A member of the RNA family "Group II catalytic intron D1-D4-3" from Brevibacillus fluminis, 172 nucleotides long.
RNA sequence: UCCAUCGCGAGGUGGAAUCUGAAGGAAGCCGGCGGCAAAGUCCCGACCUGAGGUACACGAAUCUAAUUUGAGGCUGUUGUACUCGGACGAGUUUGCUAAACAAAACGAAGUCCAAUACAGCCAAGGGGUAUAGCAGUAAAUUAGACAGGUACAUGGGAUGAAAGCUAUCGUU
Numbered sequence: 001u002c003c004a005u006c007g008c009g010a011g012g013u014g015g016a017a018u019c020u021g022a023a024g025g026a027a028g029c030c031g032g033c034g035g036c037a038a039a040g041u042c043c044c045g046a047c048c049u050g051a052g053g054u055a056c057a058c059g060a061a062u063c064u065a066a067u068u069u070g071a072g073g074c075u076g077u078u079g080u081a082c083u084c085g086g087a088c089g090a091g092u093u094u095g096c097u098a099a100a101c102a103a104a105a106c107g108a109a110g111u112c113c114a115a116u117a118c119a120g121c122c123a124a125g126g127g128g129u130a131u132a133g134c135a136g137u138a139a140a141u142u143a144g145a146c147a148g149g150u151a152c153a154u155g156g157g158a159u160g161a162a163a164g165c166u167a168u169c170g171u172u
Stems, first nucleotide, its partner, number of pairs: 001016006028172001030170003035165002040159006046150005062145006073137003077133007085113004091106004
About the family: Group II introns are found in rRNA, tRNA and mRNA of organelles in fungi, plants and protists, and also in mRNA in bacteria. A search with the family's covariance model found it, with a score of 148 bits. The organism belongs to Brevibacillus, within Bacteria.